[Rfam]
RNA sequence: AUCACUGCUGACAGUCAGUAGUUGGUCUGGGGUAAGCAGGAAAUCUCAGAUCAUCUCUUGACUGUGGAUGGUGUAGGGGA
Numbered sequence: 001a002u003c004a005c006u007g008c009u010g011a012c013a014g015u016c017a018g019u020a021g022u023u024g025g026u027c028u029g030g031g032g033u034a035a036g037c038a039g040g041a042a043a044u045c046u047c048a049g050a051u052c053a054u055c056u057c058u059u060g061a062c063u064g065u066g067g068a069u070g071g072u073g074u075a076g077g078g079g080a
Stems, first nucleotide, its partner, number of pairs: 003073005011065008020056002023053008